SraG RNA: a 170-nucleotide RNA sequence from Cedecea neteri.
NCBI's taxonomy places the organism under Bacteria, Pseudomonadati, Gammaproteobacteria, Enterobacteriaceae, Cedecea.
Rfam describes the family as follows. This RNA was discovered in E. coli during a large scale screen. Evidence was found for specific cleavage of this RNA.
The base pairs follow the family's consensus structure, which was predicted with PFOLD.
The match comes from Rfam's covariance-model search (132 bits).
RNA sequence: CUUCAUCGCAUCCUCGCGACUAAUGACAACCCUAACCCGCUCUUACGGGUAAAGCCUCUCAUUAGCCGCGCGAACCUCUGCAAUAAAGAUCACACUCAGCAACAAUACAUUAGUUUCCAUAGAAUUGCUGCCGCCUGGUUGAAAAAAGGGGCCCUUACAGGCCCCUUUUU
Dot-bracket structure: (((.(..(((....((((.(((((((................................)))))))...))))......)))..).)))......(..........................).........................((((((......)))))).....